[Rfam]
RNA sequence: GUGGCUUCUUUUUCGUUUUUAAUCUGAAACUGAAAUUUUAAUAAUGUAAAAUUUUUGUUAUAAAAAAGAAGCCUAAAUUAAUUGUUCCCCUCGCUAUCCGGUGCUUCAAAUCAUGUGGCAUUUGGACGUCGGGGAACUACAUAU
Numbered sequence: 001g002u003g004g005c006u007u008c009u010u011u012u013u014c015g016u017u018u019u020u021a022a023u024c025u026g027a028a029a030c031u032g033a034a035a036u037u038u039u040a041a042u043a044a045u046g047u048a049a050a051a052u053u054u055u056u057g058u059u060a061u062a063a064a065a066a067a068g069a070a071g072c073c074u075a076a077a078u079u080a081a082u083u084g085u086u087c088c089c090c091u092c093g094c095u096a097u098c099c100g101g102u103g104c105u106u107c108a109a110a111u112c113a114u115g116u117g118g119c120a121u122u123u124g125g126a127c128g129u130c131g132g133g134g135a136a137c138u139a140c141a142u143a144u
Stems, first nucleotide, its partner, number of pairs: 002075001003073003008068006016060001019057001026055004031050001034047001084137007092128002097126005107115002

Description:
The family of this 144-nucleotide RNA from Corchorus olitorius is "Small nucleolar RNA snoR136". The literature on the family includes a 2009 paper in Nucleic Acids Res by Chen and Wu, "Mining small RNA sequencing data: a new approach to identify small nucleolar RNAs in Arabidopsis". Gene Ontology terms of the family: nucleolus and RNA processing. A search with the family's covariance model found it, with a score of 95 bits.